[Rfam]
This 84-nucleotide RNA sequence from Phrynocephalus forsythii belongs to the Rfam family "mir-15 microRNA precursor family". Rfam 15.1 lists 2,045 matches to the family in 649 species. Rfam's curators write: This family represents the related mir-15a and mir-15b sequences. A reference for the family is Lagos-Quintana et al. (2001), "Identification of novel genes coding for small expressed RNAs", Science. NCBI's taxonomy places the organism under Eukaryota, Metazoa, Euteleostomi, Sauropsida, Phrynocephalus. Pairs were carried over by alignment from the consensus structure, which was predicted with RNAalifold.

RNA sequence: CUUUAAGGUGCUCUAGCAGCACAUCAUGAUUUGUAUGGCAUAAUAAUUAUGCAAGUCAUUAUUUGCUGCUUUAGAAUUUUAAGG
Number, nucleotide and partner (000 for none) at each position: 001c084002u083003u082004u081005a080006a079007g000008g000009u000010g000011c000012u000013c000014u000015a070016g069017c068018a067019g066020c065021a064022c000023a062024u061025c000026a059027u058028g057029a056030u055031u054032u053033g052034u051035a050036u049037g000038g000039c000040a000041u000042a000043a000044u000045a000046a000047u000048u000049a036050u035051g034052c033053a032054a031055g030056u029057c028058a027059u026060u000061a024062u023063u000064u021065g020066c019067u018068g017069c016070u015071u000072u000073a000074g000075a000076a000077u000078u000079u006080u005081a004082a003083g002084g001